[Rfam]
RNA sequence: AUAACAAAUAGAGGUGCGUUAAAAGGGUAGUCCGUGAGGAUGAAGGUUUUUAUCGCCGAUAGUUGGAUUCCAACUAGGUGGAUGUGAGUAGAGUUACAUUCACUGUCAUAUUUUAUAUAUGGAGAGCUAUUUAUUUC
Numbered sequence: 001a002u003a004a005c006a007a008a009u010a011g012a013g014g015u016g017c018g019u020u021a022a023a024a025g026g027g028u029a030g031u032c033c034g035u036g037a038g039g040a041u042g043a044a045g046g047u048u049u050u051u052a053u054c055g056c057c058g059a060u061a062g063u064u065g066g067a068u069u070c071c072a073a074c075u076a077g078g079u080g081g082a083u084g085u086g087a088g089u090a091g092a093g094u095u096a097c098a099u100u101c102a103c104u105g106u107c108a109u110a111u112u113u114u115a116u117a118u119a120u121g122g123a124g125a126g127c128u129a130u131u132u133a134u135u136u137c
Stems, first nucleotide, its partner, number of pairs: 006132006016056003020052005030041004060076007077104011106122005
The record is a 137-nucleotide sequence from Psychrobacillus soli, which matches "Lysine riboswitch aptamer" in Rfam. The match comes from Rfam's covariance-model search (59 bits).